This 102-nucleotide RNA from Paenibacillus agri belongs to the Rfam family "Purine riboswitch aptamer". Rfam links the family to the GO term purine nucleobase biosynthetic process. Pairs were carried over by alignment from the consensus structure, which is taken from published work.
[Rfam]
RNA sequence: AAACUAAAGCUAUGAACAGCUCGUAUAAAGCCGGGGAUAUGGCCCGGAAGUUUCUACCCGGGAACCGUAAAUUGCCGGACUACGAGGAGAUGUGAUGAAGGA
Numbered sequence: 001a002a003a004c005u006a007a008a009g010c011u012a013u014g015a016a017c018a019g020c021u022c023g024u025a026u027a028a029a030g031c032c033g034g035g036g037a038u039a040u041g042g043c044c045c046g047g048a049a050g051u052u053u054c055u056a057c058c059c060g061g062g063a064a065c066c067g068u069a070a071a072u073u074g075c076c077g078g079a080c081u082a083c084g085a086g087g088a089g090a091u092g093u094g095a096u097g098a099a100g101g102a
Stems, first nucleotide, its partner, number of pairs: 020086006031047005058078004063073002